[Rfam]
RNA sequence: GCGCAGAGUAGAAGCGUUCAGCCCCAUCGUCAUCGCGCCAUCGCGGUCCGGUACGGGGUGGGAAAUUGCUCUUUCA
Numbered sequence: 001g002c003g004c005a006g007a008g009u010a011g012a013a014g015c016g017u018u019c020a021g022c023c024c025c026a027u028c029g030u031c032a033u034c035g036c037g038c039c040a041u042c043g044c045g046g047u048c049c050g051g052u053a054c055g056g057g058g059u060g061g062g063a064a065a066u067u068g069c070u071c072u073u074u075c076a
Stems, first nucleotide, its partner, number of pairs: 005072006015061001018063002021059005027053001
The record is a 76-nucleotide RNA sequence from Variovorax sp. PDC80, which matches "Xanthine riboswitch aptamer (NMT1 RNA)" in Rfam.
A reference for the family is Yu and Breaker (2020), "A bacterial riboswitch class senses xanthine and uric acid to regulate genes associated with purine oxidation", RNA.
NCBI's taxonomy places the organism under Bacteria, Pseudomonadota, Betaproteobacteria, Burkholderiales, Variovorax.